[Rfam]
RNA sequence: CAACUCUGGAAAGUGGACAUCCCGAUGUCCCGCCGACGGUGAAAGCCGCGGCCGUCGUCCGCGGGUCCUCGGCUCGGACCCAUGGCGGCGGCGGCCGGUGAAGCUCUCAGGCCAAUGACAGAGGGGGA
Numbered sequence: 001c002a003a004c005u006c007u008g009g010a011a012a013g014u015g016g017a018c019a020u021c022c023c024g025a026u027g028u029c030c031c032g033c034c035g036a037c038g039g040u041g042a043a044a045g046c047c048g049c050g051g052c053c054g055u056c057g058u059c060c061g062c063g064g065g066u067c068c069u070c071g072g073c074u075c076g077g078a079c080c081c082a083u084g085g086c087g088g089c090g091g092c093g094g095c096c097g098g099u100g101a102a103g104c105u106c107u108c109a110g111g112c113c114a115a116u117g118a119c120a121g122a123g124g125g126g127g128a
Base pairs, nucleotide, nucleotide: 001126004123005122006121007120008119015030016029017028018027032112033111034110035108036107039106041104045099046098047097048096
Shown here is a 128-nucleotide sequence from Frankia alni, a member of the family "Glycine riboswitch aptamer". Lineage of the source: Bacteria > Actinomycetota > Actinomycetes > Frankia > Frankia alni. Its family is annotated with glycine biosynthetic process in the Gene Ontology.